[Rfam]
RNA sequence: ACCCAAAGUCGCAUGUGCCUGUGGGUGUCCGCCGAUCCCUCGAAUGGUGAGGGAUGGGUAAGGUACCCGGAGCUAACCCCUCCGGUCGCUUCCCGGCCAACCGGACGAGCGAGGACAUCUUGAAGCAACGACGGUCGGGUCUAU
Number, nucleotide and partner (000 for none) at each position: 001a140002c139003c138004c137005a000006a000007a000008g132009u131010c130011g129012c000013a000014u000015g000016u127017g126018c125019c000020u000021g000022u000023g120024g119025g118026u117027g116028u115029c114030c113031g059032c058033c057034g000035a055036u000037c000038c052039c051040u050041c049042g048043a000044a000045u000046g000047g000048u042049g041050a040051g039052g038053g000054a000055u035056g000057g033058g032059u031060a000061a000062g000063g000064u000065a000066c000067c085068c084069g083070g082071a081072g000073c000074u000075a000076a000077c000078c000079c000080c000081u071082c070083c069084g068085g067086u112087c111088g110089c109090u000091u105092c000093c104094c103095g102096g101097c000098c000099a000100a000101c096102c095103g094104g093105a091106c000107g000108a000109g089110c088111g087112a086113g030114g029115a028116c027117a026118u025119c024120u023121u000122g000123a000124a000125g018126c017127a016128a000129c011130g010131a009132c008133g000134g000135u000136c000137g004138g003139g002140u001141c000142u000143a000144u000
RNA: Alphaproteobacterial sRNA ar45